[Rfam]
RNA: Small nucleolar RNA SNORD18
Organism: Triticum aestivum
RNA sequence: GGGAAAUGAUGAAGAACAAUUGGUCCGUGUUUCUGAAAAUCAUGUGAAGAUAUCCAAUGAAACACUCAAAUCUUCUGAUUCU
Numbered sequence: 001g002g003g004a005a006a007u008g009a010u011g012a013a014g015a016a017c018a019a020u021u022g023g024u025c026c027g028u029g030u031u032u033c034u035g036a037a038a039a040u041c042a043u044g045u046g047a048a049g050a051u052a053u054c055c056a057a058u059g060a061a062a063c064a065c066u067c068a069a070a071u072c073u074u075c076u077g078a079u080u081c082u
Stems, first nucleotide, its partner, number of pairs: 001082004